[Rfam]
RNA sequence: AGCCUCUUGCCACGGGUGUGGUAGCAUCAUGAAUGCUACGACCAUGUACGUCAGUAGAUGGCUGAUAUCGAUUCUUCUCCCUUUGAUAGGAAGCUGCGGAUCAUAGUUGAACCUUUGUCUUGCAGUGCCUUUUCGGGUGAUCACAUGA
Numbered sequence: 001a002g003c004c005u006c007u008u009g010c011c012a013c014g015g016g017u018g019u020g021g022u023a024g025c026a027u028c029a030u031g032a033a034u035g036c037u038a039c040g041a042c043c044a045u046g047u048a049c050g051u052c053a054g055u056a057g058a059u060g061g062c063u064g065a066u067a068u069c070g071a072u073u074c075u076u077c078u079c080c081c082u083u084u085g086a087u088a089g090g091a092a093g094c095u096g097c098g099g100a101u102c103a104u105a106g107u108u109g110a111a112c113c114u115u116u117g118u119c120u121u122g123c124a125g126u127g128c129c130u131u132u133u134c135g136g137g138u139g140a141u142c143a144c145a146u147g148a
Stems, first nucleotide, its partner, number of pairs: 002062003007057002013050002016047003020043003024036003076140002079137002089129002094125003098120004
Rfam assigns this 148-nucleotide RNA sequence from Chara braunii to the family "Small nucleolar RNA snoR2/U65". On this family, see Shaw et al., J Cell Sci 1998: "Localization and processing from a polycistronic precursor of novel snoRNAs in maize". Lineage of the source: Eukaryota > Streptophyta > Charophyceae > Charales > Chara. Its family is annotated with RNA processing and nucleolus in the Gene Ontology.